[Rfam]
RNA sequence: UCAGCUGGCCGGGCGGCCGCUUCGAGUUCGCUCGGGGAGGAAAGUCCGGGCUCCAUGGAAGCAAGGUGCCGGAUAACGUCCGGCGGGGGCGACCCUAGGGAUAGUGCCACAGAAAGCAGACCGCCUCGCAAGGAUCUUCGGAUUCCCGAGGUAAGGGUGAAAGGGUGCGGUAAGAGCGCACCGCGGACGCAGCAAUGCGGACGGCACGGUAAACCCCACCAGGAGCAAAACCGAAUAGGGACGACAGGCGUUCGCGCCAGGCCCGCUUCCAGGCUGGUCGUCCGGGUUGGUUGCUUGAGGCGGUCAGCAAUGAUCGUCCCAGAGGAAUGGCCGCCACGUUCAAGGGUUAGACCUUGGGCCAUACAGAACCCGGCUUACAGGCCGGCUGACCCC
Number, nucleotide and partner (000 for none) at each position: 001u389002c388003a387004g386005c385006u384007g383008g382009c381010c380011g378012g335013g334014c333015g332016g331017c330018c329019g000020c037021u036022u035023c034024g033025a032026g031027u000028u000029c000030g000031c026032u025033c024034g023035g022036g021037g020038a000039g000040g000041a000042a376043a375044g374045u000046c373047c372048g371049g370050g369051c225052u224053c223054c222055a000056u000057g000058g000059a000060a000061g269062c000063a000064a000065g220066g219067u218068g217069c083070c082071g081072g080073a079074u000075a000076a000077c000078g000079u073080c072081c071082g070083g069084c098085g096086g095087g094088g093089g000090c000091g000092a000093c088094c087095c086096u085097a000098g084099g216100g215101a000102u000103a000104g214105u213106g210107c209108c208109a000110c000111a000112g000113a000114a000115a000116g000117c000118a000119g000120a000121c156122c155123g152124c151125c150126u149127c148128g147129c000130a000131a144132g000133g000134a000135u000136c000137u000138u000139c000140g000141g000142a000143u000144u131145c000146c000147c128148g127149a126150g125151g124152u123153a000154a000155g122156g121157g000158u000159g000160a000161a000162a000163g000164g182165g181166u180167g179168c178169g177170g000171u000172a000173a000174g000175a000176g000177c169178g168179c167180a166181c165182c164183g205184c203185g202186g000187a000188c199189g198190c197191a196192g000193c000194a000195a000196u191197g190198c189199g188200g000201a000202c185203g184204g000205c183206a000207c000208g108209g107210u106211a000212a000213a105214c104215c100216c099217c068218a067219c066220c065221a000222g054223g053224a052225g051226c000227a000228a000229a292230a291231c290232c289233g000234a000235a000236u000237a000238g000239g283240g282241a281242c280243g279244a278245c000246a000247g000248g000249c000250g000251u000252u000253c000254g000255c000256g000257c000258c000259a000260g000261g000262c276263c000264c000265g000266c272267u000268u000269c061270c000271a000272g266273g000274c000275u000276g262277g000278u244279c243280g242281u241282c240283c239284g000285g000286g000287u000288u000289g232290g231291u230292u229293g000294c000295u000296u000297g000298a000299g318300g317301c316302g315303g314304u313305c312306a311307g000308c000309a000310a000311u306312g305313a304314u303315c302316g301317u300318c299319c000320c000321a000322g000323a000324g000325g000326a000327a000328u000329g018330g017331c016332c015333g014334c013335c012336a000337c000338g000339u000340u000341c000342a000343a000344g000345g000346g000347u000348u000349a000350g000351a000352c000353c000354u000355u000356g000357g000358g000359c000360c000361a000362u000363a000364c000365a000366g000367a000368a000369c050370c049371c048372g047373g046374c044375u043376u042377a000378c011379a000380g010381g009382c008383c007384g006385g005386c004387u003388g002389a001390c000391c000392c000393c000